[Rfam]
Rfam assigns this 63-nucleotide RNA from Orycteropus afer to the family "Selenocysteine insertion sequence 1". Pairs were carried over by alignment from the consensus structure, which is taken from published work. The literature on the family includes a 1996 paper in RNA by Walczak et al., "A novel RNA structural motif in the selenocysteine insertion element of eukaryotic selenoprotein mRNAs".
RNA sequence: GUUUCUUUAAUGAUGUGAAUGGAGUAAAGUUUUUGUGACCUCCAUUUGCUGAUGUGGCGCUAC
Numbered sequence: 001g002u003u004u005c006u007u008u009a010a011u012g013a014u015g016u017g018a019a020u021g022g023a024g025u026a027a028a029g030u031u032u033u034u035g036u037g038a039c040c041u042c043c044a045u046u047u048g049c050u051g052a053u054g055u056g057g058c059g060c061u062a063c
Stems, first nucleotide, its partner, number of pairs: 001063002005059001015049010029039003
Taxonomically the source falls in Orycteropus afer (Eukaryota, Eumetazoa, Chordata, Orycteropus).